[Rfam]
RNA: Flavivirus capsid hairpin cHP
RNA sequence: AUGUCUAAAAAACCAGGAGGACCCGGAAGAAACCGGGUCGUCAGUAUG
Numbered sequence: 001a002u003g004u005c006u007a008a009a010a011a012a013c014c015a016g017g018a019g020g021a022c023c024c025g026g027a028a029g030a031a032a033c034c035g036g037g038u039c040g041u042c043a044g045u046a047u048g
Base pairs, nucleotide, nucleotide: 017042018041020039021038022037023036024035025034